[Rfam]
RNA sequence: CUAGGAAGAGGCAGCACGUUGCAUAGUUCUAGGGAAGGCACUUUUCCCACUUGGGGGUAACUGUAUGCCCUGCUGCCUGUCUUAG
Numbered sequence: 001c002u003a004g005g006a007a008g009a010g011g012c013a014g015c016a017c018g019u020u021g022c023a024u025a026g027u028u029c030u031a032g033g034g035a036a037g038g039c040a041c042u043u044u045u046c047c048c049a050c051u052u053g054g055g056g057g058u059a060a061c062u063g064u065a066u067g068c069c070c071u072g073c074u075g076c077c078u079g080u081c082u083u084a085g
Stems, first nucleotide, its partner, number of pairs: 001085006009078008018069001020067002023064005032047004050055001
This 85-nucleotide sequence from Macaca mulatta belongs to the Rfam family "let-7 microRNA precursor family". On this family, see Rougvie, Nat Rev Genet 2001: "Control of developmental timing in animals". The organism belongs to Macaca, within Eukaryota. This family represents the microRNAs (miRNA) let-7 and mir-98. let-7 was identified from a study of developmental timing in C. elegans, and was later shown to be part of a much larger class of non-coding RNAs termed miRNAs. Its family is annotated with RISC complex and miRNA-mediated post-transcriptional gene silencing in the Gene Ontology.